The record is a 587-nucleotide part of an RNA from Leptospirillum sp. Group II '5-way CG', which matches "Bacterial large subunit ribosomal RNA" in Rfam. The sequence is in the family's curated seed alignment. Lineage of the source: Bacteria > Nitrospirota > Nitrospiria > Nitrospirales > Leptospirillum sp. Group II. Its family is annotated with ribosome and structural constituent of ribosome in the Gene Ontology. The base pairs follow the family's consensus structure, which is taken from published work.
RNA sequence: CCCGCAACUAGACGGAAAGACCCUGUGCACCUUUACUAUAGCUUGGCAGUGGGUGCUAGGAUAACCUGUGUAGCAUAGGUGGGAGGCGUUGAAGCGCAUGCGCUAGCAUGUGUGGAGCCGACGGUGAAAUACCACCCUGGUGAUUCUGGCAUCCUCACCGCGUCCCGUGAUCCGGGACCGGGACCCUGUCUGGCGGGUAGUUUGACUGGGGCGGUCGCCUCCUAAACAGUAACGGAGGCGCCCAAAGGUUCCCUCAGGCUGGACGGAAACCAGCCGUUGAGUGCAAAGGCAUAAGGGAGCUUCACUGAGAGACCGACGGGUCGAUCAGAUGGGAAACCAGGGCUUAGUGAUCCGGUGGUACCUCGUGGGAGGGCCAUCGCUCAGCGGACAAAAGGUACGCCGGGGAUAACAGGCUGAUCUCCCCCAAGAGUUCACAUCGACGGGGAGGUUUGGCACCUCGAUGUCGACUCAUCGCAUCCUGGGGCUGAAGUUGGUCCCAAGGGUUGGGCUGUUCGCCCAUUAAAGCGGUACGAGAGUUGGGUUCAGAACGUCGUGAGACAGUUCGGUCCCUAUCUGUUGUGGGCGUU
Numbered sequence: 001c002c003c004g005c006a007a008c009u010a011g012a013c014g015g016a017a018a019g020a021c022c023c024u025g026u027g028c029a030c031c032u033u034u035a036c037u038a039u040a041g042c043u044u045g046g047c048a049g050u051g052g053g054u055g056c057u058a059g060g061a062u063a064a065c066c067u068g069u070g071u072a073g074c075a076u077a078g079g080u081g082g083g084a085g086g087c088g089u090u091g092a093a094g095c096g097c098a099u100g101c102g103c104u105a106g107c108a109u110g111u112g113u114g115g116a117g118c119c120g121a122c123g124g125u126g127a128a129a130u131a132c133c134a135c136c137c138u139g140g141u142g143a144u145u146c147u148g149g150c151a152u153c154c155u156c157a158c159c160g161c162g163u164c165c166c167g168u169g170a171u172c173c174g175g176g177a178c179c180g181g182g183a184c185c186c187u188g189u190c191u192g193g194c195g196g197g198u199a200g201u202u203u204g205a206c207u208g209g210g211g212c213g214g215u216c217g218c219c220u221c222c223u224a225a226a227c228a229g230u231a232a233c234g235g236a237g238g239c240g241c242c243c244a245a246a247g248g249u250u251c252c253c254u255c256a257g258g259c260u261g262g263a264c265g266g267a268a269a270c271c272a273g274c275c276g277u278u279g280a281g282u283g284c285a286a287a288g289g290c291a292u293a294a295g296g297g298a299g300c301u302u303c304a305c306u307g308a309g310a311g312a313c314c315g316a317c318g319g320g321u322c323g324a325u326c327a328g329a330u331g332g333g334a335a336a337c338c339a340g341g342g343c344u345u346a347g348u349g350a351u352c353c354g355g356u357g358g359u360a361c362c363u364c365g366u367g368g369g370a371g372g373g374c375c376a377u378c379g380c381u382c383a384g385c386g387g388a389c390a391a392a393a394g395g396u397a398c399g400c401c402g403g404g405g406a407u408a409a410c411a412g413g414c415u416g417a418u419c420u421c422c423c424c425c426a427a428g429a430g431u432u433c434a435c436a437u438c439g440a441c442g443g444g445g446a447g448g449u450u451u452g453g454c455a456c457c458u459c460g461a462u463g464u465c466g467a468c469u470c471a472u473c474g475c476a477u478c479c480u481g482g483g484g485c486u487g488a489a490g491u492u493g494g495u496c497c498c499a500a501g502g503g504u505u506g507g508g509c510u511g512u513u514c515g516c517c518c519a520u521u522a523a524a525g526c527g528g529u530a531c532g533a534g535a536g537u538u539g540g541g542u543u544c545a546g547a548a549c550g551u552c553g554u555g556a557g558a559c560a561g562u563u564c565g566g567u568c569c570c571u572a573u574c575u576g577u578u579g580u581g582g583g584c585g586u587u
Stems, first nucleotide, its partner, number of pairs: 001583008010575003014570002022404004027400002029396005035201004042193002045190004051154012064141003068137001078136005085119003094113008158181003162178006204216004217239006240385001242342002248300006254280002257275006281290002305328004311322003330339003353379007361372002413454003417451001418448007428438002465540001466538004470532001471529005478503002481498006505519005546564004550559003